[Rfam]
Annotation: The record is a 193-nucleotide RNA from Streptomyces sp. CNQ-509, which matches "c-di-AMP riboswitch aptamer (ydaO/yuaA leader)" in Rfam. The literature on the family includes a 2004 paper in Proc Natl Acad Sci U S A by Barrick et al., "New RNA motifs suggest an expanded scope for riboswitches in bacterial genetic control". Its family is annotated with cyclic-di-AMP binding and regulation of gene expression in the Gene Ontology. A search with the family's covariance model found it, with a score of 69 bits. This family represents a conserved RNA structure found upstream of the ydaO and yuaA genes in Bacillus subtilis and related genes in other bacteria.
RNA sequence: GUCGCCGUAACGCCGAAUCCUGUCGGCGGCGACGGGCAGGCACUUCAGCUUUCACGGCAGGAGCGGGGGACCCAGGUAAGUGCCGCACCGCGCGCAAGCGCGGGACGGCUUGGGGUGAAGCCAUGCUCCGCAUGGCCGGGCAUCUCCAGCUCGAACCCGACAGCUCACCUCGCAGGCGUCGGAGAGGAGCAUG
Numbered sequence: 001g002u003c004g005c006c007g008u009a010a011c012g013c014c015g016a017a018u019c020c021u022g023u024c025g026g027c028g029g030c031g032a033c034g035g036g037c038a039g040g041c042a043c044u045u046c047a048g049c050u051u052u053c054a055c056g057g058c059a060g061g062a063g064c065g066g067g068g069g070a071c072c073c074a075g076g077u078a079a080g081u082g083c084c085g086c087a088c089c090g091c092g093c094g095c096a097a098g099c100g101c102g103g104g105a106c107g108g109c110u111u112g113g114g115g116u117g118a119a120g121c122c123a124u125g126c127u128c129c130g131c132a133u134g135g136c137c138g139g140g141c142a143u144c145u146c147c148a149g150c151u152c153g154a155a156c157c158c159g160a161c162a163g164c165u166c167a168c169c170u171c172g173c174a175g176g177c178g179u180c181g182g183a184g185a186g187g188a189g190c191a192u193g
Stems, first nucleotide, its partner, number of pairs: 011178004018062008063173006073112005113158003121135004138152004